Nucleotides: 114
Stems, first nucleotide, its partner, number of pairs: 001114003047061005
Number, partner (000 for none) and nucleotide at each position: 001114g002113c003112u004000a005000a006000u007000g008000a009000u010000g011000a012000a013000a014000g015000g016000a017000c018000c019000a020000a021000c022000u023000u024000u025000u026000g027000a028000g029000g030000u031000g032000u033000a034000g035000a036000u037000a038000g039000c040000u041000u042000c043000a044000a045000g046000a047061c048060c049059c050058u051057g052000u053000u054000u055000u056000a057051c058050g059049g060048g061047g062000a063000g064000a065000a066000c067000c068000u069000a070000c071000u072000u073000g074000a075000a076000g077000c078000u079000c080000c081000u082000a083000c084000a085000u086000u087000c088000a089000a090000a091000u092000g093000a094000u095000g096000u097000u098000c099000u100000g101000g102000u103000c104000a105000u106000u107000a108000c109000u110000g111000a112003g113002g114001c